[Rfam]
RNA sequence: GCACCGUCUGGGGGAGAGAGUUCUCUCAAUCGAGGACCGCCGAAGGCGCAACCCGCCCGGAAUCGCUCAGGCUUCAGGACCGCAGACGGUGG
Numbered sequence: 001g002c003a004c005c006g007u008c009u010g011g012g013g014g015a016g017a018g019a020g021u022u023c024u025c026u027c028a029a030u031c032g033a034g035g036a037c038c039g040c041c042g043a044a045g046g047c048g049c050a051a052c053c054c055g056c057c058c059g060g061a062a063u064c065g066c067u068c069a070g071g072c073u074u075c076a077g078g079a080c081c082g083c084a085g086a087c088g089g090u091g092g
Base pairs, nucleotide, nucleotide: 006087007086008085009084010083012081013080020037021036022035023034039072040071041070042068043067046066047065048064052060053059